Small Cajal body specific RNA 6: a 269-nucleotide RNA sequence from Oryzias sinensis.
The family's RNA type in Rfam is small Cajal body RNA.
U88 is small Cajal body specific RNA (scaRNA). scaRNAs are a novel class of small nuclear RNAs which localise to the Cajal bodies. U88 is found associated with both fibrillarin and Gar1p and co-localises with coilin in Cajal bodies.
The organism belongs to Oryzias, within Eukaryota.
Rfam 15.1 lists 1,309 matches to the family in 627 species.

RNA sequence: GGUCAAUGAUGAGUAGUAAAAGGUCUGAUUUCCCACAAUCCUCUUGCUGCCCCUCUGGCUCCCAGCAGCCAGCUCUUUGCUCCCAUCAUGCUCCAGUGUUGUUGUGAUGGUCCCAGCUACUGCUGACACACAGGAUGUGACAUCACUGAAAGUUUGCACAGAGAAUCUGCAGCCUCUGAUGUUCUGACAUCCCACACAACCAAUCAGAAGGAGUUGUACAGAGGAGGAGGAGGAGGAGGGAGCUGAUCUCAAGUUUUCAAACUGAGACC
Numbered sequence: 001g002g003u004c005a006a007u008g009a010u011g012a013g014u015a016g017u018a019a020a021a022g023g024u025c026u027g028a029u030u031u032c033c034c035a036c037a038a039u040c041c042u043c044u045u046g047c048u049g050c051c052c053c054u055c056u057g058g059c060u061c062c063c064a065g066c067a068g069c070c071a072g073c074u075c076u077u078u079g080c081u082c083c084c085a086u087c088a089u090g091c092u093c094c095a096g097u098g099u100u101g102u103u104g105u106g107a108u109g110g111u112c113c114c115a116g117c118u119a120c121u122g123c124u125g126a127c128a129c130a131c132a133g134g135a136u137g138u139g140a141c142a143u144c145a146c147u148g149a150a151a152g153u154u155u156g157c158a159c160a161g162a163g164a165a166u167c168u169g170c171a172g173c174c175u176c177u178g179a180u181g182u183u184c185u186g187a188c189a190u191c192c193c194a195c196a197c198a199a200c201c202a203a204u205c206a207g208a209a210g211g212a213g214u215u216g217u218a219c220a221g222a223g224g225a226g227g228a229g230g231a232g233g234a235g236g237a238g239g240g241a242g243c244u245g246a247u248c249u250c251a252a253g254u255u256u257u258c259a260a261a262c263u264g265a266g267a268c269c
Stems, first nucleotide, its partner, number of pairs: 001269004035249001038247003043227002045223001047221001059213004063125006083110008091101001133192006149177001151175002154172005